[Rfam]
Nucleotides: 350
Base pairs, nucleotide, nucleotide: 040053041052042051043050044049057188058187059186060185061184067181068180069177070176071175072174081166082165085163086162087161091107092106093105094104095103108148109147110146111145112144113143114142189204190203191202195214196213198212199211200210316331317330318329319328322347323346324345325344326343327342
Number, partner (000 for none) and nucleotide at each position: 001000c002000c003000u004000c005000u006000u007000c008000a009000a010000a011000u012000c013000g014000g015000a016000u017000c018000g019000c020000a021000c022000c023000c024000g025000c026000c027000c028000u029000a030000u031000a032000u033000u034000c035000a036000a037000u038000u039000u040053g041052u042051c043050c044049c045000c046000u047000u048000g049044g050043g051042g052041a053040c054000u055000a056000c057188g058187g059186a060185c061184a062000u063000a064000a065000a066000c067181g068180c069177g070176c071175u072174c073000g074000u075000a076000a077000u078000a079000a080000u081166c082165g083000g084000a085163u086162c087161g088000g089000a090000c091107c092106c093105g094104g095103g096000g097000g098000c099000g100000g101000u102000a103095c104094c105093c106092g107091g108148c109147g110146g111145c112144u113143c114142c115000a116000c117000c118000a119000a120000a121000a122000a123000u124000c125000c126000u127000u128000c129000a130000u131000u132000u133000g134000g135000g136000g137000a138000u139000c140000a141000u142114g143113g144112g145111g146110c147109c148108g149000a150000a151000a152000u153000a154000g155000g156000a157000u158000c159000g160000a161087c162086g163085a164000a165082c166081g167000c168000c169000u170000a171000a172000a173000g174072g175071g176070g177069u178000u179000a180068g181067c182000u183000u184061u185060g186059u187058c188057u189204c190203g191202g192000c193000u194000g195214u196213c197000u198212g199211c200210c201000a202191c203190c204189g205000u206000u207000a208000u209000c210200g211199g212198c213196g214195a215000a216000g217000a218000a219000a220000g221000u222000a223000c224000a225000a226000u227000u228000g229000c230000a231000a232000a233000u234000g235000a236000c237000a238000a239000u240000c241000g242000u243000g244000c245000u246000c247000c248000g249000g250000u251000u252000g253000c254000g255000g256000u257000u258000g259000c260000u261000g262000c263000g264000u265000a266000a267000g268000c269000a270000g271000u272000a273000a274000c275000u276000u277000g278000a279000c280000c281000g282000a283000a284000a285000a286000u287000u288000a289000a290000g291000c292000c293000c294000u295000u296000g297000c298000g299000c300000c301000u302000a303000g304000c305000a306000g307000c308000g309000u310000a311000a312000g313000g314000c315000g316331g317330g318329g319328u320000u321000c322347g323346c324345a325344g326343g327342c328319a329318c330317c331316u332000g333000g334000c335000a336000a337000c338000a339000g340000a341000a342327g343326c344325c345324u346323g347322c348000a349000c350000u